[Rfam]
RNA: BsrC
Organism: Paenibacillus sp. J31TS4
RNA sequence: GCAUCCUAAAACAAUGAAAGCCCUGCCUCUCUUCCAUCCUUGCGGCUCCGAUGACCGCGCCAGUGUGAAUCAGCGAUACAAGAACGUU
Numbered sequence: 001g002c003a004u005c006c007u008a009a010a011a012c013a014a015u016g017a018a019a020g021c022c023c024u025g026c027c028u029c030u031c032u033u034c035c036a037u038c039c040u041u042g043c044g045g046c047u048c049c050g051a052u053g054a055c056c057g058c059g060c061c062a063g064u065g066u067g068a069a070u071c072a073g074c075g076a077u078a079c080a081a082g083a084a085c086g087u088u
Stems, first nucleotide, its partner, number of pairs: 035067002039063002041059005047053001